This 289-nucleotide RNA from Paenibacillus durus belongs to the Rfam family "T-box leader". Uncharged tRNA acts as the effector for transcription antitermination of genes in the T-box leader family. T-boxes are found upstream of many aminoacyl-tRNA synthetase genes and some amino acid biosynthetic genes usually in Gram-positive bacteria. The anticodon of a specific tRNA base pairs to a specifier sequence within the T-box motif, and the NCCA acceptor tail of the tRNA base pairs to a conserved bulge in the T-box antiterminator hairpin. The match comes from Rfam's covariance-model search (100 bits). Rfam links the family to the GO term tRNA binding.
RNA sequence: AAUGAUUCAAGGAUGAGGAGCAUUAAUUUCGGAUGAGUCAUGCAGAGAGCCGGUGUUAUUGGUGAAAGCCGGUUGACGACAGCGAAAUGAACUCGCCUCGGAGAAACGGCGCAAGCCGCUUGGCGUCUUUCGGACUGAAAGAGCAGUUCUCUUAACCGGAGAAGUGUCCAAGCGUUAACCGCCGUCGGCCCGCCCCCGUUACAGGGUGUAGAGUGAGCAAGCGCCGGGCAAAGAAUGUCCGCCUGCUAACUAGGGUGGUACCACGGGAAUUCAGCCUCUCGUCCCUAGC
Numbered sequence: 001a002a003u004g005a006u007u008c009a010a011g012g013a014u015g016a017g018g019a020g021c022a023u024u025a026a027u028u029u030c031g032g033a034u035g036a037g038u039c040a041u042g043c044a045g046a047g048a049g050c051c052g053g054u055g056u057u058a059u060u061g062g063u064g065a066a067a068g069c070c071g072g073u074u075g076a077c078g079a080c081a082g083c084g085a086a087a088u089g090a091a092c093u094c095g096c097c098u099c100g101g102a103g104a105a106a107c108g109g110c111g112c113a114a115g116c117c118g119c120u121u122g123g124c125g126u127c128u129u130u131c132g133g134a135c136u137g138a139a140a141g142a143g144c145a146g147u148u149c150u151c152u153u154a155a156c157c158g159g160a161g162a163a164g165u166g167u168c169c170a171a172g173c174g175u176u177a178a179c180c181g182c183c184g185u186c187g188g189c190c191c192g193c194c195c196c197c198g199u200u201a202c203a204g205g206g207u208g209u210a211g212a213g214u215g216a217g218c219a220a221g222c223g224c225c226g227g228g229c230a231a232a233g234a235a236u237g238u239c240c241g242c243c244u245g246c247u248a249a250c251u252a253g254g255g256u257g258g259u260a261c262c263a264c265g266g267g268a269a270u271u272c273a274g275c276c277u278c279u280c281g282u283c284c285c286u287a288g289c
Base pairs, nucleotide, nucleotide: 007104008103015099016098017097018096026088027087028086029085030084031083038076039075040074049073050072051071052070053069054068107184108183109182110181111180186198187197188196216247217246218245219244221242222241252286253285254284255283263282264281265280266279267278